[Rfam]
RNA sequence: GUCUGGUCCAAAGAUAGUGAGUUAUCUCAGUUGAUUGUUUACAGUCAGUUACAGAUAGAACUCCUUGUUGUACUCUUUCUUUCCUUCUCACUGCUGCACUUGACUUUAGUCUUUA
Numbered sequence: 001g002u003c004u005g006g007u008c009c010a011a012a013g014a015u016a017g018u019g020a021g022u023u024a025u026c027u028c029a030g031u032u033g034a035u036u037g038u039u040u041a042c043a044g045u046c047a048g049u050u051a052c053a054g055a056u057a058g059a060a061c062u063c064c065u066u067g068u069u070g071u072a073c074u075c076u077u078u079c080u081u082u083c084c085u086u087c088u089c090a091c092u093g094c095u096g097c098a099c100u101u102g103a104c105u106u107u108a109g110u111c112u113u114u115a
Base pairs, nucleotide, nucleotide: 001111003109004108005105006104007103008102010101011100015096016092017091018090019089020088021087044074047071
The family of this 115-nucleotide RNA sequence from Prolemur simus is "Y RNA". Y RNAs are components of the Ro ribonucleoprotein particle (Ro RNP), in association with Ro60 and La proteins. The Y RNAs and Ro60 and La proteins are well conserved, but the function of the Ro RNP is not known. In humans the RNA component can be one of four small RNAs -- hY1, hY3, hY4 and hY5. These small RNAs are predicted to fold into a conserved secondary structure containing three stem structures. It scores 56 bits against the family's covariance model. The organism belongs to Prolemur, within Eukaryota. A reference for the family is Mosig et al. (2007), "Evolution of the vertebrate Y RNA cluster", Theory Biosci.